This 102-nucleotide sequence from Paludifilum halophilum belongs to the Rfam family "Purine riboswitch aptamer".
RNA sequence: ACGAAGGAUGGAUGGUUUUCUCAUAUAUGCUCGAGAAUAGGGCUUGAGCGUUUCUACCCGGAGACCGUAAAUCACCGGACUAUGGGAAAUACCUUCCGCUUG
Numbered sequence: 001a002c003g004a005a006g007g008a009u010g011g012a013u014g015g016u017u018u019u020c021u022c023a024u025a026u027a028u029g030c031u032c033g034a035g036a037a038u039a040g041g042g043c044u045u046g047a048g049c050g051u052u053u054c055u056a057c058c059c060g061g062a063g064a065c066c067g068u069a070a071a072u073c074a075c076c077g078g079a080c081u082a083u084g085g086g087a088a089a090u091a092c093c094u095u096c097c098g099c100u101u102g
Base pairs, nucleotide, nucleotide: 018088019087020086021085022084023083024082025081029049030048031047032046033045034044035043058078059077060076061075063073064072

Source information
Taxonomically the source falls in Paludifilum (Bacteria, Bacillati, Bacillota, Bacilli).